[Rfam]
RNA sequence: AAAAAAAACCCCGCCAUAAGGGCAGGGGUAGACAGGGAUGUGCCGGUGGCAAGGUAAACAGGGAUAAUGUGUUU
Numbered sequence: 001a002a003a004a005a006a007a008a009c010c011c012c013g014c015c016a017u018a019a020g021g022g023c024a025g026g027g028g029u030a031g032a033c034a035g036g037g038a039u040g041u042g043c044c045g046g047u048g049g050c051a052a053g054g055u056a057a058a059c060a061g062g063g064a065u066a067a068u069g070u071g072u073u074u
Stems, first nucleotide, its partner, number of pairs: 008029005013023003031073004036068001039066003043062002046059002

A member of the RNA family "Hfq-regulated sRNA 1" from Erwinia amylovora, 74 nucleotides long. Rfam links the family to the GO term protein binding. The source organism's lineage runs through Bacteria, Pseudomonadota, Enterobacterales, Erwiniaceae and Erwinia amylovora. Pairs were carried over by alignment from the consensus structure, which was predicted with RNAfold. The sequence is in the family's curated seed alignment.